[Rfam]
RNA: U2 spliceosomal RNA
Organism: Vombatus ursinus
Nucleotides: 198
Stems, first nucleotide, its partner, number of pairs: 007025003011021004046064002050061002066085005072079001114150008128139002131136001154190005160182001162180002165177001
Number, partner (000 for none) and nucleotide at each position: 001000u002000a003000a004000g005000u006000u007025u008024c009023u010000c011021a012020g013019c014018c015000u016000c017000u018014g019013g020012c021011u022000a023009a024008g025007a026000u027000c028000a029000a030000a031000u032000g033000u034000a035000g036000u037000a038000u039000a040000u041000g042000u043000u044000c045000u046064u047063a048000u049000c050061a051060g052000u053000u054000u055000a056000g057000u058000a059000u060051c061050u062000c063047u064046a065000u066085g067084u068083c069082c070081u071000c072079u073000a074000u075000u076000u077000g078000a079072a080000a081070a082069g083068g084067a085066c086000a087000u088000c089000u090000a091000g092000g093000u094000g095000g096000c097000a098000c099000a100000g101000g102000g103000g104000g105000a106000a107000a108000a109000g110000u111000g112000c113000u114150g115149g116148g117147c118146u119145u120144g121143g122000a123000g124000u125000c126000a127000g128139g129138a130000a131136g132000a133000u134000u135000u136131c137000a138129u139128c140000u141000u142000c143121c144120c145119g146118a147117g148116c149115u150114c151000a152000a153000a154190u155189u156188u157187g158186g159000u160182c161000u162180c163179a164000g165177a166000c167000a168000u169000u170000u171000a172000u173000u174000a175000g176000c177165u178000g179163u180162g181000u182160g183000a184000c185000u186158c187157u188156a189155g190154g191000c192000a193000a194000g195000u196000c197000a198000c